[Rfam]
RNA sequence: GCAGGCUCACUCUGUACCGAACUGCACUCUUCAGUUCAGGUGCUUUUUCUGCCUGCGACAGUAACCACUCACGGGCAUGCUGAAUGCCUCCUUCCUCGUGGAAGGCUGUUACAGUUGCUGCUGGGACAUUGCA
Numbered sequence: 001g002c003a004g005g006c007u008c009a010c011u012c013u014g015u016a017c018c019g020a021a022c023u024g025c026a027c028u029c030u031u032c033a034g035u036u037c038a039g040g041u042g043c044u045u046u047u048u049c050u051g052c053c054u055g056c057g058a059c060a061g062u063a064a065c066c067a068c069u070c071a072c073g074g075g076c077a078u079g080c081u082g083a084a085u086g087c088c089u090c091c092u093u094c095c096u097c098g099u100g101g102a103a104g105g106c107u108g109u110u111a112c113a114g115u116u117g118c119u120g121c122u123g124g125g126a127c128a129u130u131g132c133a
Stems, first nucleotide, its partner, number of pairs: 001056006014043005019037002022034003069124003072120001074119003079115004084110001087108001090105002
Small nucleolar RNA SNORA77: a 133-nucleotide sequence from Callipepla squamata. The source organism's lineage runs through Eukaryota, Opisthokonta, Bilateria, Saurischia and Callipepla. It is annotated as an H/ACA-box small nucleolar RNA. From the family's description: ACA63 (SNORA77) is a member of the H/ACA class of snoRNAs that guide the sites of modification of uridines to pseudouridines. This snoRNA was identified by computational screening and its expression in mouse experimentally verified by Northern blot and primer extension analysis. ACA63 is proposed to guide the pseudouridylation of 18S rRNA U814. A search with the family's covariance model found it, with a score of 53 bits. Rfam 15.1 lists 843 matches to the family in 607 species. Its family is annotated with RNA processing and nucleolus in the Gene Ontology.